The family of this 71-nucleotide sequence from Galemys pyrenaicus is "Small nucleolar RNA SNORD56". The match comes from Rfam's covariance-model search (89 bits). Taxonomically the source falls in Galemys (Eukaryota, Dipnotetrapodomorpha, Boreoeutheria, Eulipotyphla). Rfam classes the family as a C/D-box small nucleolar RNA. For this family Rfam cites "Purified box C/D snoRNPs are able to reproduce site-specific 2'-O-methylation of target RNA in vitro" (Galardi et al., Mol Cell Biol, 2002). The family's consensus secondary structure was predicted with PFOLD.
RNA sequence: CUACAGUGAUGUCAGUAUUUUUCGUCAACAGCAGUUCACUUAGUGAGUGUUGAUACGUUGGGUCUGAGUGA
Numbered sequence: 001c002u003a004c005a006g007u008g009a010u011g012u013c014a015g016u017a018u019u020u021u022u023c024g025u026c027a028a029c030a031g032c033a034g035u036u037c038a039c040u041u042a043g044u045g046a047g048u049g050u051u052g053a054u055a056c057g058u059u060g061g062g063u064c065u066g067a068g069u070g071a
Stems, first nucleotide, its partner, number of pairs: 002070003008026004